[Rfam]
RNA sequence: GAACGUCUUCAGGGCGGGGUGGAAUUCCCCACCGGCGGUAGGCGCGGUCCGUUUCCAGGCCGUGCGAGCCCGCGAGCGCCUUCCGGUUGCCGCCGGAAGGGUCAGCAGAUCCGGUCCGAUGCCGGAGCCGACGGUUGCGGUGCGGCAGUCCGCCAUGGCGGGCCGCCGCACCCCAGAGUCCGGAUGAAAGAAGACGGCC
Numbered sequence: 001g002a003a004c005g006u007c008u009u010c011a012g013g014g015c016g017g018g019g020u021g022g023a024a025u026u027c028c029c030c031a032c033c034g035g036c037g038g039u040a041g042g043c044g045c046g047g048u049c050c051g052u053u054u055c056c057a058g059g060c061c062g063u064g065c066g067a068g069c070c071c072g073c074g075a076g077c078g079c080c081u082u083c084c085g086g087u088u089g090c091c092g093c094c095g096g097a098a099g100g101g102u103c104a105g106c107a108g109a110u111c112c113g114g115u116c117c118g119a120u121g122c123c124g125g126a127g128c129c130g131a132c133g134g135u136u137g138c139g140g141u142g143c144g145g146c147a148g149u150c151c152g153c154c155a156u157g158g159c160g161g162g163c164c165g166c167c168g169c170a171c172c173c174c175a176g177a178g179u180c181c182g183g184a185u186g187a188a189a190g191a192a193g194a195c196g197g198c199c
Stems, first nucleotide, its partner, number of pairs: 004196007017029003033130002035073004068128002076106002110126005132182003
RNA: FMN riboswitch aptamer (RFN element)